[Rfam]
RNA sequence: GCGGGGGAAUGCUCGGUCGCGCCCUGGUGUGAAUCAGGGUGAGGAAAGUCCGGGCACCGCAGGGCAGGAUGCCAGCUAACGGCUGGUCGGCGAGUCCAGCGCCCACGCGCGCACCACGCGCGCGGGAAGGCGGCGAAGCCGAAGGACAGUGCCACAGAAACCAGACCGCCUGCCGCGUGACGCCCGUGGUGCCGGGCGCGGCAGGUCAGGGUGAAACGGUGCGGUAAGAGCGCACCAGAUUCCCGGGAGACCGGGAGUGCUGGUAAACCCCAUCCGGUGCAAGACCCGACAGUACGGCAGGGUGGCCCGCCCGUCAUGACCGUCAGGAUGGUCGCUUGAGGCGCGUGGUGACACGCGUCCCAGAGAGAUGACCGCGCAGCUGCGAAAGCGGCGGACAGAACCCGGCUUACAGUUCCCCCGCACCA
Number, nucleotide and partner (000 for none) at each position: 001g421002c420003g419004g418005g417006g416007g415008a414009a413010u412011g410012c376013u000014c374015g373016g372017u371018c370019g000020c041021g040022c039023c038024c037025u036026g035027g034028u033029g000030u000031g000032a000033a028034u027035c026036a025037g024038g023039g022040u021041g020042a000043g000044g000045a000046a408047a407048g406049u000050c405051c404052g403053g402054g401055c279056a278057c277058c276059g000060c000061a000062g312063g311064g310065c309066a000067g275068g274069a273070u272071g271072c086073c085074a084075g083076c082077u000078a000079a000080c000081g000082g076083c075084u074085g073086g072087u143088c141089g140090g139091c138092g000093a000094g000095u000096c000097c000098a000099g000100c000101g000102c000103c000104c000105a000106c000107g000108c000109g000110c000111g000112c000113a000114c000115c000116a000117c000118g000119c000120g000121c000122g000123c000124g000125g000126g000127a000128a000129g000130g000131c000132g000133g000134c000135g000136a000137a000138g091139c090140c089141g088142a000143a087144g270145g269146a000147c000148a000149g268150u267151g264152c263153c262154a000155c000156a000157g000158a000159a000160a000161c000162c000163a000164g000165a000166c210167c209168g206169c205170c204171u203172g202173c201174c200175g199176c198177g197178u196179g000180a000181c000182g000183c000184c000185c000186g000187u000188g000189g000190u000191g000192c000193c000194g000195g000196g178197c177198g176199c175200g174201g173202c172203a171204g170205g169206u168207c000208a000209g167210g166211g000212u000213g000214a000215a000216a000217c000218g236219g235220u234221g233222c232223g231224g000225u000226a000227a000228g000229a000230g000231c223232g222233c221234a220235c219236c218237a000238g260239a258240u257241u256242c255243c254244c253245g252246g251247g000248a000249g000250a000251c246252c245253g244254g243255g242256a241257g240258u239259g000260c238261u000262g153263g152264u151265a000266a000267a150268c149269c145270c144271c071272a070273u069274c068275c067276g058277g057278u056279g055280c000281a000282a000283g333284a332285c331286c330287c000288g000289a000290c000291a000292g000293u000294a323295c322296g321297g320298c000299a000300g000301g000302g000303u000304g000305g315306c000307c313308c000309g065310c064311c063312c062313g307314u000315c305316a000317u000318g000319a000320c297321c296322g295323u294324c000325a000326g000327g000328a000329u000330g286331g285332u284333c283334g000335c000336u000337u000338g000339a000340g359341g358342c357343g356344c355345g354346u353347g352348g000349u000350g000351a000352c347353a346354c345355g344356c343357g342358u341359c340360c000361c000362a000363g000364a000365g000366a000367g000368a000369u000370g018371a017372c016373c015374g014375c000376g012377c000378a000379g000380c000381u000382g000383c000384g000385a000386a000387a000388g000389c000390g000391g000392c000393g000394g000395a000396c000397a000398g000399a000400a000401c054402c053403c052404g051405g050406c048407u047408u046409a000410c011411a000412g010413u009414u008415c007416c006417c005418c004419c003420g002421c001422a000423c000424c000425a000